[Rfam]
Record summary: A member of the RNA family "MIR2670 microRNA precursor family" from Medicago truncatula, 200 nucleotides long. Lineage of the source: Eukaryota > Viridiplantae > Streptophytina > Hologalegina > Medicago. Rfam links the family to the GO terms miRNA-mediated post-transcriptional gene silencing and RISC complex. The base pairs follow the family's consensus structure, which was predicted with RNAalifold. The family has 7 seed sequences and 188 matches in Rfam 15.1.

RNA sequence: UCGGGAUAAAAUAGUGAGUAGCUGACUUAGGGAAGUGAUCGACCAUUGGGAUAAGUUUAAAUCUGCUAUUUUUUACUCCAUAAACUUUUUACCGUGGGUAAAAAGAUUCUUGUUGGGGUAUAAAAAAAACCAGACUUAAAUUUAGCCCAAGGGUUGGUGAUGUAUUUUCUCCAAGAAGGUUGCUCACUAUUUUACCCCAU
Numbered sequence: 001u002c003g004g005g006a007u008a009a010a011a012u013a014g015u016g017a018g019u020a021g022c023u024g025a026c027u028u029a030g031g032g033a034a035g036u037g038a039u040c041g042a043c044c045a046u047u048g049g050g051a052u053a054a055g056u057u058u059a060a061a062u063c064u065g066c067u068a069u070u071u072u073u074u075a076c077u078c079c080a081u082a083a084a085c086u087u088u089u090u091a092c093c094g095u096g097g098g099u100a101a102a103a104a105g106a107u108u109c110u111u112g113u114u115g116g117g118g119u120a121u122a123a124a125a126a127a128a129a130c131c132a133g134a135c136u137u138a139a140a141u142u143u144a145g146c147c148c149a150a151g152g153g154u155u156g157g158u159g160a161u162g163u164a165u166u167u168u169c170u171c172c173a174a175g176a177a178g179g180u181u182g183c184u185c186a187c188u189a190u191u192u193u194a195c196c197c198c199a200u
Stems, first nucleotide, its partner, number of pairs: 003198003007194017026175003030171006038161004042154003046150005052144004057139004062134004067129001069127005074120007085105009
Dot-bracket structure: ..(((.(((((((((((((((((..(((.((((((..(((((((.(((((.((((.((((.((((.(.((((((((((((....(((((((((...)))))))))........)))))))..))))).).)))).)))).)))).))))).)))...))))....)))))).)))..))))))))))))))))).)))..